RNA: mir-7 microRNA precursor family
Nucleotides: 088
Stems, first nucleotide, its partner, number of pairs: 003086003007082002010079004016073002019070005025065001027063005033058006
Number, partner (000 for none) and nucleotide at each position: 001000c002000a003086g004085c005084c006000a007082g008081c009000c010079c011078c012077a013076u014000c015000u016073g017072g018000a019070a020069g021068a022067c023066u024000a025065g026000u027063g028062a029061u030060u031059u032000u033058g034057u035056u036055g037054u038053u039000g040000u041000c042000u043000c044000c045000c046000u047000g048000c049000g050000c051000u052000c053038a054037a055036c056035a057034a058033c059031a060030a061029g062028u063027c064000c065025c066023a067022g068021u069020c070019u071000g072017c073016c074000u075000c076013a077012u078011g079010g080000u081008g082007c083000c084005g085004g086003c087000c088000g